Background:
c-di-AMP riboswitch aptamer (ydaO/yuaA leader): a 138-nucleotide RNA sequence from Streptomyces roseochromogenus. Taxonomically the source falls in Streptomyces roseochromogenus subsp. oscitans (Bacteria, Bacillati, Actinomycetota, Actinomycetes). About the family: This family represents a conserved RNA structure found upstream of the ydaO and yuaA genes in Bacillus subtilis and related genes in other bacteria.

RNA sequence: AACGGAAGUUCGUCUGGUCGUCGCAGACGGGCGGGGGUUCCGAGCGGCCCUUGGGGUGAAGCCGUGGCAACGCGGCCGGGCAACUUCGCCAGCCCGAAUCCGACAGGUCAUCCUUCACAGGCGGCUGACGAAGGGUUG
Numbered sequence: 001a002a003c004g005g006a007a008g009u010u011c012g013u014c015u016g017g018u019c020g021u022c023g024c025a026g027a028c029g030g031g032c033g034g035g036g037g038u039u040c041c042g043a044g045c046g047g048c049c050c051u052u053g054g055g056g057u058g059a060a061g062c063c064g065u066g067g068c069a070a071c072g073c074g075g076c077c078g079g080g081c082a083a084c085u086u087c088g089c090c091a092g093c094c095c096g097a098a099u100c101c102g103a104c105a106g107g108u109c110a111u112c113c114u115u116c117a118c119a120g121g122c123g124g125c126u127g128a129c130g131a132a133g134g135g136u137u138g
Base pairs, nucleotide, nucleotide: 003030005028031118033116034115035114036113041053042052054101055100056099062075063074064073065072078095079094080093081092